[Rfam]
RNA sequence: UGUGAUAUAGCUCAAUUGGCAGAGCGCUGGACUGUUAAUCCGGUAGUUGAAGGUUCGAGUCCUUCUAUCACAG
Numbered sequence: 001u002g003u004g005a006u007a008u009a010g011c012u013c014a015a016u017u018g019g020c021a022g023a024g025c026g027c028u029g030g031a032c033u034g035u036u037a038a039u040c041c042g043g044u045a046g047u048u049g050a051a052g053g054u055u056c057g058a059g060u061c062c063u064u065c066u067a068u069c070a071c072a073g
Base pairs, nucleotide, nucleotide: 001072002071003070004069005068006067007066010025011024012023013022027043028042029041030040031039049065050064051063052062053061
Rfam assigns this 73-nucleotide sequence from Getseptimavirus GMA7 to the family "tRNA". For this family Rfam cites "The tertiary structure of tRNA and the development of the genetic code" (Hou, Trends Biochem Sci, 1993). NCBI's taxonomy places the organism under Viruses, Duplodnaviria, Heunggongvirae, Uroviricota, Getseptimavirus GMA7. The family's consensus secondary structure is taken from published work. The family's RNA type in Rfam is transfer RNA.